[Rfam]
RNA sequence: CUGUUUCAUGAUUGUCCAAACGCAAUACAGGUGUUACAAUAAAUUCUGUGUUUUCGUAUGGACAUCGUAAUACAG
Number, nucleotide and partner (000 for none) at each position: 001c000002u074003g073004u072005u000006u070007c000008a000009u067010g066011a065012u064013u000014g063015u062016c061017c060018a059019a000020a000021c056022g055023c000024a053025a052026u050027a049028c048029a047030g046031g000032u000033g000034u000035u000036a000037c000038a000039a000040u000041a000042a000043a000044u000045u000046c030047u029048g028049u027050g026051u000052u025053u024054u000055c022056g021057u000058a000059u018060g017061g016062a015063c014064a012065u011066c010067g009068u000069a000070a006071u000072a004073c003074a002075g000

Annotation:
The record is a 75-nucleotide sequence from Ciona savignyi, which matches "mir-219 microRNA precursor family" in Rfam. Rfam links the family to the GO terms miRNA-mediated post-transcriptional gene silencing and RISC complex.